Annotation
Rfam assigns this 74-nucleotide RNA from Euglena gracilis to the family "tRNA". The family's RNA type in Rfam is transfer RNA. Rfam's curators put it in the seed alignment. The base pairs follow the family's consensus structure, which is taken from published work.
[Rfam]
RNA sequence: GGCGGAGUAGAGCAGUCAGGUAGCUCGCAGGGCUCAUAAUCCUGAAGUCAGAGGUUCAAAUCCUUUCUCCGCUA
Number, nucleotide and partner (000 for none) at each position: 001g073002g072003c071004g070005g069006a068007g067008u000009a000010g026011a025012g024013c023014a000015g000016u000017c000018a000019g000020g000021u000022a000023g013024c012025u011026c010027g000028c044029a043030g042031g041032g040033c000034u000035c000036a000037u000038a000039a000040u032041c031042c030043u029044g028045a000046a000047g000048u000049c000050a066051g065052a064053g063054g062055u000056u000057c000058a000059a000060a000061u000062c054063c053064u052065u051066u050067c007068u006069c005070c004071g003072c002073u001074a000